RNA sequence: ACAGUACAAACUGAUCAGGCCGAUAAAUGAUUUUAUUUAUGGAGCCGGGCCAUAAUAGUGGCAACAGGAUAUUUAAUACCUGUGGGACAGUA
Numbered sequence: 001a002c003a004g005u006a007c008a009a010a011c012u013g014a015u016c017a018g019g020c021c022g023a024u025a026a027a028u029g030a031u032u033u034u035a036u037u038u039a040u041g042g043a044g045c046c047g048g049g050c051c052a053u054a055a056u057a058g059u060g061g062c063a064a065c066a067g068g069a070u071a072u073u074u075a076a077u078a079c080c081u082g083u084g085g086g087a088c089a090g091u092a
Stems, first nucleotide, its partner, number of pairs: 010091004016086001018046003023040006049062005064083005
The record is a 92-nucleotide sequence from Clostridium botulinum, which matches "NiCo (Nickel/Cobalt) riboswitch aptamer" in Rfam. The literature on the family includes a 2015 paper in Mol Cell by Furukawa et al., "Bacterial riboswitches cooperatively bind Ni(2+) or Co(2+) ions and control expression of heavy metal transporters". Rfam's curators put it in the seed alignment. Pairs were carried over by alignment from the consensus structure, which is taken from published work.